[Rfam]
RNA sequence: AAGGUUACUGGAUUAGCUGUUGGACACUGCCCAAGAUUAGAUAAUUUACACUCUUGUGCGUGUGACAGCGGCUAUUCCAGGUGCCAAAGAUCUUCCU
Numbered sequence: 001a002a003g004g005u006u007a008c009u010g011g012a013u014u015a016g017c018u019g020u021u022g023g024a025c026a027c028u029g030c031c032c033a034a035g036a037u038u039a040g041a042u043a044a045u046u047u048a049c050a051c052u053c054u055u056g057u058g059c060g061u062g063u064g065a066c067a068g069c070g071g072c073u074a075u076u077c078c079a080g081g082u083g084c085c086a087a088a089g090a091u092c093u094u095c096c097u
Stems, first nucleotide, its partner, number of pairs: 005083001008080005015073008025062002028060003032056002035053002
RNA: mir-210 microRNA precursor family